[Rfam]
RNA sequence: UCUUCAUUUCGCACACUCUAUCACAUGUCAGAGAGGCGAGAGAGCGUGUGAAAUGAAGAGA
Dot-bracket structure: (((((((..(.(((.((.(.((...............)).).)).))).)..)))))))..
Numbered sequence: 001u002c003u004u005c006a007u008u009u010c011g012c013a014c015a016c017u018c019u020a021u022c023a024c025a026u027g028u029c030a031g032a033g034a035g036g037c038g039a040g041a042g043a044g045c046g047u048g049u050g051a052a053a054u055g056a057a058g059a060g061a
Stems, first nucleotide, its partner, number of pairs: 001059007010050001012048003016044002019041001021039002
Source information: A member of the RNA family "mir-8364 microRNA precursor family" from Pristionchus pacificus, 61 nucleotides long. The family's consensus secondary structure was predicted with RNAalifold. It scores 74 bits against the family's covariance model.